[Rfam]
RNA sequence: CUAGGCUAUCGGGUAAUCGCUGGUUCUUUACAGAACAAGAGGAAAGUCCGGGCAGCGUAGGACAUGGCAGUCGCUAACGGCGACCAGAGGUAACUCUAGGGAAAGUGCCACAGAAACGAUACCGCUAUCUCAAAUCUGCUUAAUGCACGAUGACUGAUAGUAAGGGUGAAAAGAGCGGUGUAAGAGACCGUAGCCGACUAUGGUGACAUAGAAGGAGGGUAAACCCUGCCAGCUGCAAGGUGUAUUAUCGCAUAAGUUGUUCGCUUGAUAAUACUAACAUCCGCUUGAGCUGUGCAGCAAUGUGCAGCCUAGAUAGAUGAUUACCGAUAACAGAACCCGGCUUAUAGAUAGCCUAAUAAA
Number, nucleotide and partner (000 for none) at each position: 001c000002u355003a354004g353005g352006c351007u350008a349009u348010c347011g345012g325013g324014u323015a322016a321017u320018c319019g000020c039021u038022g000023g036024u035025u034026c033027u032028u000029u000030a000031c000032a027033g026034a025035a024036c023037a000038a021039g020040a000041g000042g000043a000044a343045a342046g341047u000048c340049c339050g338051g337052g336053c235054a234055g233056c232057g000058u000059a000060g262061g261062a260063c259064a000065u231066g230067g229068c228069a227070g084071u083072c082073g081074c080075u000076a000077a000078c000079g000080g074081c073082g072083a071084c070085c099086a097087g096088a095089g094090g000091u000092a000093a000094c089095u088096c087097u086098a000099g085100g226101g225102a000103a000104a000105g224106u223107g220108c219109c218110a000111c000112a000113g000114a000115a000116a000117c000118g000119a000120u000121a000122c165123c164124g161125c160126u159127a158128u157129c156130u000131c000132a000133a000134a000135u000136c000137u000138g000139c000140u000141u000142a000143a000144u000145g000146c000147a000148c000149g000150a000151u000152g000153a000154c000155u000156g129157a128158u127159a126160g125161u124162a000163a000164g123165g122166g000167u000168g000169a000170a000171a000172a000173g000174a000175g191176c190177g189178g188179u187180g000181u000182a000183a000184g000185a000186g000187a179188c178189c177190g176191u175192a000193g000194c000195c214196g000197a000198c211199u210200a209201u208202g207203g000204u000205g000206a000207c202208a201209u200210a199211g198212a000213a000214g195215g000216a000217g000218g109219g108220u107221a000222a000223a106224c105225c101226c100227u069228g068229c067230c066231a065232g056233c055234u054235g053236c000237a000238a000239g282240g281241u000242g274243u273244a272245u271246u270247a269248u000249c000250g000251c000252a000253u267254a266255a265256g264257u263258u000259g063260u062261u061262c060263g257264c256265u255266u254267g253268a000269u247270a246271a245272u244273a243274c242275u000276a000277a000278c000279a000280u000281c240282c239283g000284c000285u000286u000287g000288a000289g308290c307291u306292g305293u304294g303295c302296a301297g000298c000299a000300a000301u296302g295303u294304g293305c292306a291307g290308c289309c000310u000311a000312g000313a000314u000315a000316g000317a000318u000319g018320a017321u016322u015323a014324c013325c012326g000327a000328u000329a000330a000331c000332a000333g000334a000335a000336c052337c051338c050339g049340g048341c046342u045343u044344a000345u011346a000347g010348a009349u008350a007351g006352c005353c004354u003355a002356a000357u000358a000359a000360a000
Overview: Bacterial RNase P class A: a 360-nucleotide RNA from TM7 phylum sp. oral taxon 346. The source organism's lineage runs through Bacteria, Bacteria candidate phyla and Candidatus Saccharimonadota. It is annotated as a ribozyme. Pairs were carried over by alignment from the consensus structure, which is taken from published work.